[Rfam]
RNA sequence: GGGGCGGUAGCUCAGCUGGUCAGAGCAUCGGACUCAUAAUCCGCCGGUCACGGGUUCAAAUCCCGUCCGCCCUA
Number, nucleotide and partner (000 for none) at each position: 001g073002g072003g071004g070005c069006g068007g067008u000009a000010g026011c025012u024013c023014a000015g000016c000017u000018g000019g000020u000021c000022a000023g013024a012025g011026c010027a000028u000029c043030g042031g041032a040033c000034u000035c000036a000037u000038a000039a000040u032041c031042c030043g029044c000045c000046g000047g000048u000049c000050a066051c065052g064053g063054g062055u000056u000057c000058a000059a000060a000061u000062c054063c053064c052065g051066u050067c007068c006069g005070c004071c003072c002073u001074a000